[Rfam]
RNA sequence: GCGGAUGGCCGGAUGACCGCGGGGCGUAUGUUCCGAGGAAAGUCCGGACUCCAUGAAGCAAGGGUGCCGGGUAACGCCCGGCGGGGGUAACCCCAGGGAAAGCGCCACAGAGAAGAGUCUGCCCCGGAUUUGAUCCGGGGUGAUGGUGAAACGGUGGGGUAAGAGCCCACCGCGGACCGGGCAACCGGGACGGCACGGCAAGCCCCACCCGGAGCAAUGCCGAAUAGGGGCCUCGCGCGGAAAGGUCUGCCUCGGCAGAGACCUCCGCAGGGACGCUUCAGCCCAGGGGCCCGGGUUGGCAGCUUGACCGCCGUGGUGACACGUGCGGCAGAGGAAUGGUCAUCCAGCCCCGGAUCACGGUCCGGGGGGGACAGAAUCCGGCUUAUAGGCCAUCCGCGCAU
Numbered sequence: 001g002c003g004g005a006u007g008g009c010c011g012g013a014u015g016a017c018c019g020c021g022g023g024g025c026g027u028a029u030g031u032u033c034c035g036a037g038g039a040a041a042g043u044c045c046g047g048a049c050u051c052c053a054u055g056a057a058g059c060a061a062g063g064g065u066g067c068c069g070g071g072u073a074a075c076g077c078c079c080g081g082c083g084g085g086g087g088u089a090a091c092c093c094c095a096g097g098g099a100a101a102g103c104g105c106c107a108c109a110g111a112g113a114a115g116a117g118u119c120u121g122c123c124c125c126g127g128a129u130u131u132g133a134u135c136c137g138g139g140g141u142g143a144u145g146g147u148g149a150a151a152c153g154g155u156g157g158g159g160u161a162a163g164a165g166c167c168c169a170c171c172g173c174g175g176a177c178c179g180g181g182c183a184a185c186c187g188g189g190a191c192g193g194c195a196c197g198g199c200a201a202g203c204c205c206c207a208c209c210c211g212g213a214g215c216a217a218u219g220c221c222g223a224a225u226a227g228g229g230g231c232c233u234c235g236c237g238c239g240g241a242a243a244g245g246u247c248u249g250c251c252u253c254g255g256c257a258g259a260g261a262c263c264u265c266c267g268c269a270g271g272g273a274c275g276c277u278u279c280a281g282c283c284c285a286g287g288g289g290c291c292c293g294g295g296u297u298g299g300c301a302g303c304u305u306g307a308c309c310g311c312c313g314u315g316g317u318g319a320c321a322c323g324u325g326c327g328g329c330a331g332a333g334g335a336a337u338g339g340u341c342a343u344c345c346a347g348c349c350c351c352g353g354a355u356c357a358c359g360g361u362c363c364g365g366g367g368g369g370g371a372c373a374g375a376a377u378c379c380g381g382c383u384u385a386u387a388g389g390c391c392a393u394c395c396g397c398g399c400a401u
Stems, first nucleotide, its partner, number of pairs: 001397010011386001012344007020035006040384003044381005049214004058278001062210005067081005082096001083094004097205002102203002104199003119145001121141009153171006172194001173192002177188004218301004228292006271284002274281001308327001312323004

This 401-nucleotide RNA from Tabrizicola sp. TH137 belongs to the Rfam family "Bacterial RNase P class A". By type it is a ribozyme. NCBI's taxonomy places the organism under Bacteria, Pseudomonadati, Alphaproteobacteria, Paracoccaceae, Tabrizicola. A search with the family's covariance model found it, with a score of 269 bits.